Description
The record is a 96-nucleotide RNA from Carlito syrichta, which matches "Y RNA" in Rfam. The literature on the family includes a 2013 paper in Physiol Genomics by Dhahbi et al., "5'-YRNA fragments derived by processing of transcripts from specific YRNA genes and pseudogenes are abundant in human serum and plasma". From the family's description: Y RNAs are components of the Ro ribonucleoprotein particle (Ro RNP), in association with Ro60 and La proteins. The Y RNAs and Ro60 and La proteins are well conserved, but the function of the Ro RNP is not known. In humans the RNA component can be one of four small RNAs -- hY1, hY3, hY4 and hY5. Taxonomically the source falls in Carlito (Eukaryota, Deuterostomia, Sarcopterygii, Primates). Pairs were carried over by alignment from the consensus structure, which is taken from published work.
RNA sequence: GGUUGGUCUGAAGCUAGUGUGUUAUCUCAACUGGAUUGCUCAUGGUCGGUUACAGACCCUUUCUCUCUUUUCACUAUCGCACUUGACUAGUCUUUA
Numbered sequence: 001g002g003u004u005g006g007u008c009u010g011a012a013g014c015u016a017g018u019g020u021g022u023u024a025u026c027u028c029a030a031c032u033g034g035a036u037u038g039c040u041c042a043u044g045g046u047c048g049g050u051u052a053c054a055g056a057c058c059c060u061u062u063c064u065c066u067c068u069u070u071u072c073a074c075u076a077u078c079g080c081a082c083u084u085g086a087c088u089a090g091u092c093u094u095u096a
Base pairs, nucleotide, nucleotide: 001092002091003090004089005088006087007086008085010084011083015079016075017074018073019072021070033058034057037054038053